The record is a 171-nucleotide RNA sequence from Streptococcus infantarius, which matches "Group II catalytic intron D1-D4-3" in Rfam. NCBI's taxonomy places the organism under Bacteria, Bacillati, Bacilli, Streptococcus, Streptococcus infantarius subsp. infantarius.
RNA sequence: ACUAUCGUGAGGUAGCGGGGAGAGGAAGGGAUAGCGAAAUCGUGGCACUACGAACAGAAACGUGAUACGAAGGCAUAUAUAGCGGACAAGGUGGCUAAGAACAUUAAAGUCCAAAAAGGUAGUCGUAACCUAUAUGCGUAAAUCACGAGUGUAAAUGAGGAAAGAUGUACG
Numbered sequence: 001a002c003u004a005u006c007g008u009g010a011g012g013u014a015g016c017g018g019g020g021a022g023a024g025g026a027a028g029g030g031a032u033a034g035c036g037a038a039a040u041c042g043u044g045g046c047a048c049u050a051c052g053a054a055c056a057g058a059a060a061c062g063u064g065a066u067a068c069g070a071a072g073g074c075a076u077a078u079a080u081a082g083c084g085g086a087c088a089a090g091g092u093g094g095c096u097a098a099g100a101a102c103a104u105u106a107a108a109g110u111c112c113a114a115a116a117a118g119g120u121a122g123u124c125g126u127a128a129c130c131u132a133u134a135u136g137c138g139u140a141a142a143u144c145a146c147g148a149g150u151g152u153a154a155a156u157g158a159g160g161a162a163a164g165a166u167g168u169a170c171g
Stems, first nucleotide, its partner, number of pairs: 002015005029170001031168002035164001040158001043157002045152005061147006073139002077135006084112004090105004
The pairing is the family consensus, mapped onto this sequence. It is one of the family's seed sequences. For this family Rfam cites "The ins and outs of group II introns" (Bonen and Vogel, Trends Genet, 2001).